[Rfam]
RNA sequence: CCUUUGGGGAGUAGCCGCCCGACGAACUUUUGGUCGGGCCGCGCGUCAACAUCCUUGACCGUCCAUCUUCGCUGAUGGACGUCAUGGCGCGCGGAGCCCACCGGGCCUGGCGAGACCAACGGCGGAUUCCUUACGGCCGGGCGGCGGCGGGGAUCGGCCGUGGUCUUUGUCUCCGCCCACAAGGU
Numbered sequence: 001c002c003u004u005u006g007g008g009g010a011g012u013a014g015c016c017g018c019c020c021g022a023c024g025a026a027c028u029u030u031u032g033g034u035c036g037g038g039c040c041g042c043g044c045g046u047c048a049a050c051a052u053c054c055u056u057g058a059c060c061g062u063c064c065a066u067c068u069u070c071g072c073u074g075a076u077g078g079a080c081g082u083c084a085u086g087g088c089g090c091g092c093g094g095a096g097c098c099c100a101c102c103g104g105g106c107c108u109g110g111c112g113a114g115a116c117c118a119a120c121g122g123c124g125g126a127u128u129c130c131u132u133a134c135g136g137c138c139g140g141g142c143g144g145c146g147g148c149g150g151g152g153a154u155c156g157g158c159c160g161u162g163g164u165c166u167u168u169g170u171c172u173c174c175g176c177c178c179a180c181a182a183g184g185u
Base pairs, nucleotide, nucleotide: 019037020036021035039094040093041092042091043090044089045088046087047086048085056084057083058082059081101184

The record is a 185-nucleotide sequence from Telmatospirillum siberiense, which matches "Manganese Mn2+ riboswitch aptamer (yybP-ykoY)" in Rfam. Taxonomically the source falls in Telmatospirillum (Bacteria, Pseudomonadota, Rhodospirillales, Rhodospirillaceae).